[Rfam]
RNA sequence: GGUAACCAUAUAGGGUAGCCAGGUUGAGGGUAGGAUGUUCUACUAUCCGCACUGUCUUCGUAGUAGCAUCAUACAGUCCCCCCCAAUACAUGGCCUUGAAGGCCAAUAGAAGGGCUCCCAUCCCUAAAAACAGAAGAUGAUGACCGAGAAUCACCCCCAACUUGGCGGGGUCAUCCCA
Numbered sequence: 001g002g003u004a005a006c007c008a009u010a011u012a013g014g015g016u017a018g019c020c021a022g023g024u025u026g027a028g029g030g031u032a033g034g035a036u037g038u039u040c041u042a043c044u045a046u047c048c049g050c051a052c053u054g055u056c057u058u059c060g061u062a063g064u065a066g067c068a069u070c071a072u073a074c075a076g077u078c079c080c081c082c083c084c085a086a087u088a089c090a091u092g093g094c095c096u097u098g099a100a101g102g103c104c105a106a107u108a109g110a111a112g113g114g115c116u117c118c119c120a121u122c123c124c125u126a127a128a129a130a131c132a133g134a135a136g137a138u139g140a141u142g143a144c145c146g147a148g149a150a151u152c153a154c155c156c157c158c159a160a161c162u163u164g165g166c167g168g169g170g171u172c173a174u175c176c177c178a
Base pairs, nucleotide, nucleotide: 136175137174138173139172140171141170144169145168
Dot-bracket structure: .......................................................................................................................................((((((..((......................))))))))...
About this RNA: Rfam assigns this 178-nucleotide RNA sequence from Geminocystis sp. M7585_C2015_104 to the family "Antisense RNA which regulates isiA expression". On this family, see Duhring et al., Proc Natl Acad Sci U S A 2006: "An internal antisense RNA regulates expression of the photosynthesis gene isiA". The base pairs follow the family's consensus structure, which was predicted with PFOLD.